The record is a 59-nucleotide RNA from Monodelphis domestica, which matches "mir-193 microRNA precursor family" in Rfam. Rfam 15.1 lists 1,158 matches to the family in 646 species. The family's consensus secondary structure was predicted with RNAalifold.

RNA sequence: CGGGGUUUUGAGGGCGAGAUGAGUUUAUGUUUUAUCCAACUGGCCCACAAAGUCCCGCU
Number, nucleotide and partner (000 for none) at each position: 001c057002g056003g055004g054005g000006u052007u051008u050009u049010g048011a000012g046013g045014g044015c043016g000017a041018g040019a000020u038021g037022a000023g000024u000025u000026u000027a000028u000029g000030u000031u000032u000033u000034a000035u000036c000037c021038a020039a000040c018041u017042g000043g015044c014045c013046c012047a000048c010049a009050a008051a007052g006053u000054c004055c003056c002057g001058c000059u000
It is one of the family's seed sequences. For this family Rfam cites "In-depth characterization of the microRNA transcriptome in a leukemia progression model" (Kuchenbauer et al., Genome Res, 2008).